[Rfam]
RNA sequence: UUGCAAUGUAGCAUGCCCGUUUGUGGAAUUACUCUGAUGUUUAUAUGUUAUUUUAUUGCUUUGGGUAACGGGGUGUUACACUUCC
Number, nucleotide and partner (000 for none) at each position: 001u000002u000003g084004c000005a082006a000007u080008g079009u078010a077011g076012c075013a074014u073015g000016c072017c071018c070019g069020u068021u067022u000023g000024u000025g000026g000027a000028a000029u000030u000031a000032c000033u000034c000035u000036g000037a000038u000039g000040u000041u000042u000043a000044u000045a000046u000047g000048u000049u000050a000051u000052u000053u000054u000055a000056u000057u000058g000059c000060u000061u000062u000063g000064g000065g000066u000067a021068a020069c019070g018071g017072g016073g014074u013075g012076u011077u010078a009079c008080a007081c000082u005083u000084c003085c000

The record is an 85-nucleotide RNA from Medicago truncatula, which matches "MIR2617 microRNA precursor family" in Rfam. The organism belongs to Medicago, within Eukaryota.